[Rfam]
RNA sequence: CGAGUCGGCCGGACGGUCGCGUCGGGGCCCCCGGGCACCCGCCGAGGAAAGUCCGGGCUCCACAGGGAACGGUGGUGGCCAACAGCCACCCGGAGCGAUCCGCGGGACAGUGCCACAGAGAACAGACCGCCCGUGCCCAGCACGGGUCAGGGUGAAACGGUGGUGUAAGAGACCACCAGCACGCCAGGUGACUGGCGUGGCUCGGUAAACCCCACCGGGAGCAAGGUCGGACAGCACGCGUUCGAGGGCGUCCCGCCCGAGCGUGCGGGUAGACCGCUCGAGGCACGUGGCAACACGUGCCCUAGAUGGAUGACCGUCACCGGCGGUGGAGCGAUCCACCGCCGGGACAGGACCCGGCUUACAGGCCGGCUCGUCUC
Numbered sequence: 001c002g003a004g005u006c007g008g009c010c011g012g013a014c015g016g017u018c019g020c021g022u023c024g025g026g027g028c029c030c031c032c033g034g035g036c037a038c039c040c041g042c043c044g045a046g047g048a049a050a051g052u053c054c055g056g057g058c059u060c061c062a063c064a065g066g067g068a069a070c071g072g073u074g075g076u077g078g079c080c081a082a083c084a085g086c087c088a089c090c091c092g093g094a095g096c097g098a099u100c101c102g103c104g105g106g107a108c109a110g111u112g113c114c115a116c117a118g119a120g121a122a123c124a125g126a127c128c129g130c131c132c133g134u135g136c137c138c139a140g141c142a143c144g145g146g147u148c149a150g151g152g153u154g155a156a157a158c159g160g161u162g163g164u165g166u167a168a169g170a171g172a173c174c175a176c177c178a179g180c181a182c183g184c185c186a187g188g189u190g191a192c193u194g195g196c197g198u199g200g201c202u203c204g205g206u207a208a209a210c211c212c213c214a215c216c217g218g219g220a221g222c223a224a225g226g227u228c229g230g231a232c233a234g235c236a237c238g239c240g241u242u243c244g245a246g247g248g249c250g251u252c253c254c255g256c257c258c259g260a261g262c263g264u265g266c267g268g269g270u271a272g273a274c275c276g277c278u279c280g281a282g283g284c285a286c287g288u289g290g291c292a293a294c295a296c297g298u299g300c301c302c303u304a305g306a307u308g309g310a311u312g313a314c315c316g317u318c319a320c321c322g323g324c325g326g327u328g329g330a331g332c333g334a335u336c337c338a339c340c341g342c343c344g345g346g347a348c349a350g351g352a353c354c355c356g357g358c359u360u361a362c363a364g365g366c367c368g369g370c371u372c373g374u375c376u377c
Base pairs, nucleotide, nucleotide: 001373002372003371004370005369006368007367008366009365010364011362012318013317014316015315016314017313018312020044021043023041024040025039026038027036028035049360050359051358053357054356055355056354057353058221059220060219061218065254066253067252068251070217071216072215073214074213075089076088077087078086079085090104091102092101093100094099105212106211110210111209112206113205114204127151128150129147130146131145132144133143134142135141136140159177160176161175162174163173164172179201180199181198182197183196184195185194186193187192225275226274227273228272234266235265236264237263238262239261246258247257248256249255282301283300284299285298286297287296288295289294
RNA: Bacterial RNase P class A